[Rfam]
RNA sequence: AAAUAUAUUUGGCAAACCUAUAGAAAUGUAGGGACGCAAAGCCAUGGGUCUUCAAUAGGACUAAGAAACUAUUAAGAUUGCCAGGUUGCGAAG
Number, nucleotide and partner (000 for none) at each position: 001a000002a000003a000004u000005a000006u000007a000008u000009u000010u000011g000012g037013c036014a000015a000016a000017c032018c031019u030020a029021u028022a027023g000024a000025a000026a000027u022028g021029u020030a019031g018032g017033g000034a000035c000036g013037c012038a000039a000040a087041g086042c085043c084044a000045u083046g082047g081048g078049u077050c076051u000052u000053c000054a000055a072056u071057a070058g069059g000060a000061c000062u000063a000064a000065g000066a000067a000068a000069c058070u057071a056072u055073u000074a000075a000076g050077a049078u048079u000080g000081c047082c046083a045084g043085g042086u041087u040088g000089c000090g000091a000092a000093g000